[Rfam]
RNA: Fluoride riboswitch aptamer (crcB RNA motif)
RNA sequence: AAUUAAAUAGGUGAUGGAGUUCGCCAUUAACUGCUAUUAUGCUAAUGACUCCUACAUAAUU
Numbered sequence: 001a002a003u004u005a006a007a008u009a010g011g012u013g014a015u016g017g018a019g020u021u022c023g024c025c026a027u028u029a030a031c032u033g034c035u036a037u038u039a040u041g042c043u044a045a046u047g048a049c050u051c052c053u054a055c056a057u058a059a060u061u
Stems, first nucleotide, its partner, number of pairs: 010025004016052006033042002